[Rfam]
RNA sequence: UUUAGCAUUAGGCUUGCGUUCGAUGAUGCCGUUGCCGACCGCGUGCAAAAGGUGGGUUUUACCCAAACCGGUGCCACCGUA
Numbered sequence: 001u002u003u004a005g006c007a008u009u010a011g012g013c014u015u016g017c018g019u020u021c022g023a024u025g026a027u028g029c030c031g032u033u034g035c036c037g038a039c040c041g042c043g044u045g046c047a048a049a050a051g052g053u054g055g056g057u058u059u060u061a062c063c064c065a066a067a068c069c070g071g072u073g074c075c076a077c078c079g080u081a
Base pairs, nucleotide, nucleotide: 005042006041009038011036012035013034016032017031018030021028051078052077053076054075056074057073061072062071063070

The family of this 81-nucleotide RNA sequence from Leminorella richardii is "antisense RNA of dnaA mRNA". On this family, see Dadzie et al., PLoS One 2013: "Identification and characterization of a cis-encoded antisense RNA associated with the replication process of Salmonella enterica serovar Typhi". The organism belongs to Leminorella, within Bacteria. Its family is annotated with regulation of mRNA stability in the Gene Ontology. The base pairs follow the family's consensus structure, which was predicted with RNAfold.